The family of this 90-nucleotide RNA from Microthlaspi erraticum is "Small nucleolar RNA snoR26". Rfam classes the family as a C/D-box small nucleolar RNA. The match comes from Rfam's covariance-model search (92 bits). Rfam 15.1 lists 611 matches to the family in 220 species. The base pairs follow the family's consensus structure, which was predicted with WAR. The source organism's lineage runs through Eukaryota, Embryophyta, Gunneridae, Coluteocarpeae and Microthlaspi.
RNA sequence: GGAGCAUCGGUGAUGAAUCCACACAAAUUGUUAUCCUUGCACUUUGAUUGCCAGUGAAGAAAAAAAUGGGGUUUUAAUUCUGAGAUGCUU
Numbered sequence: 001g002g003a004g005c006a007u008c009g010g011u012g013a014u015g016a017a018u019c020c021a022c023a024c025a026a027a028u029u030g031u032u033a034u035c036c037u038u039g040c041a042c043u044u045u046g047a048u049u050g051c052c053a054g055u056g057a058a059g060a061a062a063a064a065a066a067u068g069g070g071g072u073u074u075u076a077a078u079u080c081u082g083a084g085a086u087g088c089u090u
Base pairs, nucleotide, nucleotide: 002090003089004088005087006086007085008084